[Rfam]
RNA sequence: GUUUUCGGGUGAUCGCGGCUUAUUGACAAGCUGAGGAAAGUCCAUGCUCGCACAAGCUGAGAUGCUUGUAGUGUUCGUGCUUAGCGAAACCAUAAGCUAAGGUACUCUUUUUGAGUAACGGCAGAAAAAAGGGCUAAGGAGCAAUCUAUGCCCAAGUAUUCUUGAAAGUGCCACAGUGACGAAGCAUUUUGAGAAAUCAAAAUGGUGGAACGCGGUAAACCCCUCGAGCGAGCAACCCAAACAAUGGUAGGGGCGCUUUUUCUAAGGAAAUGAACGAUGAAGAAGACGACAAUCGUCGGAGAUAGAUGAUUACCACGUGAUUCAGCUUCCCUGAGUUGUUUUGCGUACAGAACAUGGCUUACAGAA
Numbered sequence: 001g002u003u004u005u006c007g008g009g010u011g012a013u014c015g016c017g018g019c020u021u022a023u024u025g026a027c028a029a030g031c032u033g034a035g036g037a038a039a040g041u042c043c044a045u046g047c048u049c050g051c052a053c054a055a056g057c058u059g060a061g062a063u064g065c066u067u068g069u070a071g072u073g074u075u076c077g078u079g080c081u082u083a084g085c086g087a088a089a090c091c092a093u094a095a096g097c098u099a100a101g102g103u104a105c106u107c108u109u110u111u112u113g114a115g116u117a118a119c120g121g122c123a124g125a126a127a128a129a130a131g132g133g134c135u136a137a138g139g140a141g142c143a144a145u146c147u148a149u150g151c152c153c154a155a156g157u158a159u160u161c162u163u164g165a166a167a168g169u170g171c172c173a174c175a176g177u178g179a180c181g182a183a184g185c186a187u188u189u190u191g192a193g194a195a196a197u198c199a200a201a202a203u204g205g206u207g208g209a210a211c212g213c214g215g216u217a218a219a220c221c222c223c224u225c226g227a228g229c230g231a232g233c234a235a236c237c238c239a240a241a242c243a244a245u246g247g248u249a250g251g252g253g254c255g256c257u258u259u260u261u262c263u264a265a266g267g268a269a270a271u272g273a274a275c276g277a278u279g280a281a282g283a284a285g286a287c288g289a290c291a292a293u294c295g296u297c298g299g300a301g302a303u304a305g306a307u308g309a310u311u312a313c314c315a316c317g318u319g320a321u322u323c324a325g326c327u328u329c330c331c332u333g334a335g336u337u338g339u340u341u342u343g344c345g346u347a348c349a350g351a352a353c354a355u356g357g358c359u360u361a362c363a364g365a366a
Stems, first nucleotide, its partner, number of pairs: 004366003007362001008314007016033006038360003042357005047232005052069006075227003079223001080101006102119001103117005120222002123162004131153004138147003168220002170216003185204008236252003256285007287298004316345005323338005

The record is a 366-nucleotide RNA sequence from Enterococcus florum, which matches "Bacterial RNase P class B" in Rfam. Rfam describes the family as follows. Ribonuclease P (RNase P) is a ubiquitous endoribonuclease, found in archaea, bacteria and eukarya as well as chloroplasts and mitochondria. A reference for the family is Frank and Pace (1998), "Ribonuclease P: unity and diversity in a tRNA processing ribozyme", Annu Rev Biochem. NCBI's taxonomy places the organism under Bacteria, Bacillati, Lactobacillales, Enterococcaceae, Enterococcus.